[Rfam]
RNA sequence: CCUGCAGCCUAACCCAAAGGUCCCGCCGUCCUCCAUGGCGGGACUGUGUCAGGCGUGCAAACAGAACCAGAACCUUGUCGCCUUUCUCUGACUCUGGUGUCUUUGAAAGUGAAUUCUUGGUCCGACACUU
Numbered sequence: 001c002c003u004g005c006a007g008c009c010u011a012a013c014c015c016a017a018a019g020g021u022c023c024c025g026c027c028g029u030c031c032u033c034c035a036u037g038g039c040g041g042g043a044c045u046g047u048g049u050c051a052g053g054c055g056u057g058c059a060a061a062c063a064g065a066a067c068c069a070g071a072a073c074c075u076u077g078u079c080g081c082c083u084u085u086c087u088c089u090g091a092c093u094c095u096g097g098u099g100u101c102u103u104u105g106a107a108a109g110u111g112a113a114u115u116c117u118u119g120g121u122c123c124g125a126c127a128c129u130u
Stems, first nucleotide, its partner, number of pairs: 003059004009053001019045010070123001072121003082109005090101003
RNA: Small nucleolar RNA SNORA68